[Rfam]
RNA sequence: UCAUUUGUGAGGAGGACUUCUCCUCGGAGUGGAAACAAGGAAACACGCCCAAAGAGAAGUCUUGA
Numbered sequence: 001u002c003a004u005u006u007g008u009g010a011g012g013a014g015g016a017c018u019u020c021u022c023c024u025c026g027g028a029g030u031g032g033a034a035a036c037a038a039g040g041a042a043a044c045a046c047g048c049c050c051a052a053a054g055a056g057a058a059g060u061c062u063u064g065a
Base pairs, nucleotide, nucleotide: 015061016060017059018058019057020056021055022054026050027049029046030045031044